[Rfam]
RNA sequence: CCGCACGCGUCGGGAGAGCGCGCUGGCCACGGGUAUCCGGCAAGGCCGCGCCGCCGAAGGGGCACACCCGCAAACUCUCAGGCAAAAGGACCGACGGCGUCGA
Numbered sequence: 001c002c003g004c005a006c007g008c009g010u011c012g013g014g015a016g017a018g019c020g021c022g023c024u025g026g027c028c029a030c031g032g033g034u035a036u037c038c039g040g041c042a043a044g045g046c047c048g049c050g051c052c053g054c055c056g057a058a059g060g061g062g063c064a065c066a067c068c069c070g071c072a073a074a075c076u077c078u079c080a081g082g083c084a085a086a087a088g089g090a091c092c093g094a095c096g097g098c099g100u101c102g103a
Base pairs, nucleotide, nucleotide: 008096009095010094011093012092013091020051021050022049023048053083054082055081056079057078060077061076062075
This 103-nucleotide RNA sequence from Trinickia terrae belongs to the Rfam family "Glycine riboswitch aptamer". This family represents the bacterial glycine riboswitch. The match comes from Rfam's covariance-model search (50 bits). The organism belongs to Trinickia, within Bacteria. Its family is annotated with glycine biosynthetic process in the Gene Ontology.